RNA sequence: UAGCUGAUGAAAGUUCAGCCGGGGUAGGGACCAAGCCGACCCGUAGCUAGCAGGCAGACGUCAGAGAAAUCUGGCGGCUGAAGCCCUGUGAAAACUACGCCAAGCUUAGCAGAGCAAAACCGCAGGCCGUAACAACC
Number, nucleotide and partner (000 for none) at each position: 001u000002a000003g000004c000005u000006g000007a000008u000009g000010a000011a000012a000013g000014u000015u000016c000017a000018g000019c000020c043021g042022g041023g040024g000025u000026a000027g000028g000029g000030a000031c000032c000033a000034a000035g000036c000037c000038g000039a000040c023041c022042c021043g020044u000045a000046g000047c000048u000049a000050g089051c088052a087053g086054g085055c080056a079057g078058a000059c076060g075061u000062c000063a000064g071065a070066g000067a000068a000069a000070u065071c064072u000073g000074g000075c060076g059077g000078c057079u056080g055081a000082a000083g000084c000085c054086c053087u052088g051089u050090g000091a000092a000093a000094a000095c109096u108097a107098c000099g105100c000101c000102a000103a000104g000105c099106u000107u097108a096109g095110c000111a000112g000113a000114g130115c129116a000117a000118a000119a000120c000121c000122g000123c000124a000125g000126g000127c000128c000129g115130u114131a000132a000133c000134a000135a000136c000137c000
Notes
This 137-nucleotide RNA sequence from Cohnella fermenti belongs to the Rfam family "Group II catalytic intron D1-D4-4". The match comes from Rfam's covariance-model search (79 bits). Rfam links the family to the GO term Group II intron splicing. The organism belongs to Cohnella, within Bacteria.